[Rfam]
RNA sequence: UUGAUAAUGUGCCAACCUUGAUGCGAGUCAAGCGACGGAAAGCCACGGGUCUCUGGGAGAGACGGCCGGGUUGCAGUU
Numbered sequence: 001u002u003g004a005u006a007a008u009g010u011g012c013c014a015a016c017c018u019u020g021a022u023g024c025g026a027g028u029c030a031a032g033c034g035a036c037g038g039a040a041a042g043c044c045a046c047g048g049g050u051c052u053c054u055g056g057g058a059g060a061g062a063c064g065g066c067c068g069g070g071u072u073g074c075a076g077u078u
Stems, first nucleotide, its partner, number of pairs: 012038002017032006041072004046068003049063006
c-di-GMP-I riboswitch aptamer: a 78-nucleotide RNA sequence from Methylophaga lonarensis. Lineage of the source: Bacteria > Pseudomonadati > Pseudomonadota > Piscirickettsiaceae > Methylophaga lonarensis. The match comes from Rfam's covariance-model search (44 bits).